[Rfam]
RNA: Small nucleolar RNA SNORA8
Organism: Formicarius rufipectus
RNA sequence: GGUGCUGCAUAUGGUAUCUGCACCCAGCACCAUUCUCCUCAUGGGGGUGUUCAAAAAGCAGUGCUGCAGCAGUACAGUAUUUGACAUCUCUGGCUUUUGUUCUGCUGUGUCUUUUGAGCAUCCUGUUUUUGCUGAAACAGUC
Numbered sequence: 001g002g003u004g005c006u007g008c009a010u011a012u013g014g015u016a017u018c019u020g021c022a023c024c025c026a027g028c029a030c031c032a033u034u035c036u037c038c039u040c041a042u043g044g045g046g047g048u049g050u051u052c053a054a055a056a057a058g059c060a061g062u063g064c065u066g067c068a069g070c071a072g073u074a075c076a077g078u079a080u081u082u083g084a085c086a087u088c089u090c091u092g093g094c095u096u097u098u099g100u101u102c103u104g105c106u107g108u109g110u111c112u113u114u115u116g117a118g119c120a121u122c123c124u125g126u127u128u129u130u131g132c133u134g135a136a137a138c139a140g141u142c
Base pairs, nucleotide, nucleotide: 002064003063004062005061006060007059017057019055020050021049022048023047024046025045030044031043032042033041067134068133069132070131071130072129074126075125076124077123083111084110085109086108087107